RNA: Trans-activation response element (TAR)
RNA sequence: GGGUCUCUCUUGUUAGACCAGGUCGAGCCCGGGAGCUCUCUGGCUAGCAAGGGAACCCAC
Numbered sequence: 001g002g003g004u005c006u007c008u009c010u011u012g013u014u015a016g017a018c019c020a021g022g023u024c025g026a027g028c029c030c031g032g033g034a035g036c037u038c039u040c041u042g043g044c045u046a047g048c049a050a051g052g053g054a055a056c057c058c059a060c
Base pairs, nucleotide, nucleotide: 001058002057003056004055006054007053008052009051010050011049012048013047014046015045016044018043019042020041021040022039025038026037027036028035